A member of the RNA family "UnaL2 LINE 3' element" from Hucho hucho, 54 nucleotides long.
The base pairs follow the family's consensus structure, which is taken from published work.
RNA sequence: UGCACAGAGGACAGUAAGUUGCUUUGGAUAAAAGUGUCUGCUAAAUGGCAUAUA
Numbered sequence: 001u002g003c004a005c006a007g008a009g010g011a012c013a014g015u016a017a018g019u020u021g022c023u024u025u026g027g028a029u030a031a032a033a034g035u036g037u038c039u040g041c042u043a044a045a046u047g048g049c050a051u052a053u054a
Stems, first nucleotide, its partner, number of pairs: 014041003020036006
Dot-bracket structure: .............(((...((((((.....))))))..))).............
The literature on the family includes a 2004 paper in RNA by Baba et al., "Solution structure of an RNA stem-loop derived from the 3' conserved region of eel LINE UnaL2".
It scores 56 bits against the family's covariance model.
The source organism's lineage runs through Eukaryota, Gnathostomata, Actinopteri, Salmoniformes and Hucho.